A member of the RNA family "U12 minor spliceosomal RNA" from Nannospalax galili, 150 nucleotides long.
NCBI's taxonomy places the organism under Eukaryota, Metazoa, Vertebrata, Gnathostomata, Nannospalax.
[Rfam]
RNA sequence: AUGCCUUAAACUUAUGAGUAAGGAAAAUAAUGAUUCGCGGUGACGCCGGAGUCCUCACUGCCAAUGUGAGACAAAUUUUUGAAUGUGGAAAGGUUGCCCCUAAGGCAACCCACCUACUUUGCGGGAUCCCUAGGUGAAGUGAUCUGCCUG
Numbered sequence: 001a002u003g004c005c006u007u008a009a010a011c012u013u014a015u016g017a018g019u020a021a022g023g024a025a026a027a028u029a030a031u032g033a034u035u036c037g038c039g040g041u042g043a044c045g046c047c048g049g050a051g052u053c054c055u056c057a058c059u060g061c062c063a064a065u066g067u068g069a070g071a072c073a074a075a076u077u078u079u080u081g082a083a084u085g086u087g088g089a090a091a092g093g094u095u096g097c098c099c100c101u102a103a104g105g106c107a108a109c110c111c112a113c114c115u116a117c118u119u120u121g122c123g124g125g126a127u128c129c130c131u132a133g134g135u136g137a138a139g140u141g142a143u144c145u146g147c148c149u150g
Stems, first nucleotide, its partner, number of pairs: 004023005032053005039046001054070005084150002087147001091145007100134002103131003107127001109125003113121001
Its Rfam clan is "U2 clan". It scores 120 bits against the family's covariance model.